Source information: This 65-nucleotide sequence from Arachis hypogaea belongs to the Rfam family "Small nucleolar RNA Z105". The family has 11 seed sequences and 621 matches in Rfam 15.1. A search with the family's covariance model found it, with a score of 55 bits. By type it is a C/D-box small nucleolar RNA.
Nucleotides: 065
Stems, first nucleotide, its partner, number of pairs: 006060004022043001026037001
Number, partner (000 for none) and nucleotide at each position: 001000u002000g003000g004000g005000c006060a007059u008058g009057a010000u011000g012000a013000g014000g015000a016000u017000a018000u019000u020000u021000a022043u023000g024000a025000a026037c027000a028000u029000u030000u031000u032000c033000a034000a035000a036000u037026g038000a039000u040000g041000a042000a043022a044000a045000c046000a047000a048000u049000c050000c051000u052000c053000c054000u055000a056000c057009u058008c059007a060006u061000u062000c063000u064000g065000a